This 112-nucleotide sequence from Lutibacter sp. Hel_I_33_5 belongs to the Rfam family "SAM riboswitch aptamer (S box leader)".
About the family: The SAM riboswitch is found upstream of a number of genes which code for proteins involved in methionine or cysteine biosynthesis in Gram-positive bacteria.
NCBI's taxonomy places the organism under Bacteria, Pseudomonadati, Bacteroidota, Flavobacteriaceae, Lutibacter.
Its family is annotated with regulation of gene expression in the Gene Ontology.

[Rfam]
RNA sequence: AGGUUAUCAUGAAAGGUGGAGGAAAUAGAUCCAAUGAAACCUUAGCAACCCUUUAUUUUAAAGAAGGUGCUAUAUUCUACUAGUACUUAAAUUGUAUUUAGACAGAUAACGG
Numbered sequence: 001a002g003g004u005u006a007u008c009a010u011g012a013a014a015g016g017u018g019g020a021g022g023a024a025a026u027a028g029a030u031c032c033a034a035u036g037a038a039a040c041c042u043u044a045g046c047a048a049c050c051c052u053u054u055a056u057u058u059u060a061a062a063g064a065a066g067g068u069g070c071u072a073u074a075u076u077c078u079a080c081u082a083g084u085a086c087u088u089a090a091a092u093u094g095u096a097u098u099u100a101g102a103c104a105g106a107u108a109a110c111g112g
Stems, first nucleotide, its partner, number of pairs: 003110006013043005021032003026079004044071004049067002051063004075104001080101004